Background: Shown here is a 136-nucleotide RNA from Paenibacillus yonginensis, a member of the family "ylbH leader". Gene Ontology term of the family: regulation of gene expression. About the family: This family is a putative regulatory RNA structure that is found upstream of the ylbH gene in B. subtilis and related low GC Gram-positive bacteria. The organism belongs to Paenibacillus, within Bacteria. The literature on the family includes a 2004 paper in Proc Natl Acad Sci U S A by Barrick et al., "New RNA motifs suggest an expanded scope for riboswitches in bacterial genetic control". Rfam classes the family as a cis-regulatory leader.
[Rfam]
RNA sequence: ACAAAAAAAGGACAAAAACCCUCGUAAAAAGCAUGCUACAAGGGCUUUUGUCCGGGUGCCCAUUCUCAGGACACCCAUCAUGGGAGAGGAGAAACCGGAUGAAGAUCUUAUGGGGAAACGUAAGUCUUCUCCGCGG
Dot-bracket structure: ..........(((((((............................)))))))......(((((................)))))...........((((.((((..((((..........)))).))))))))...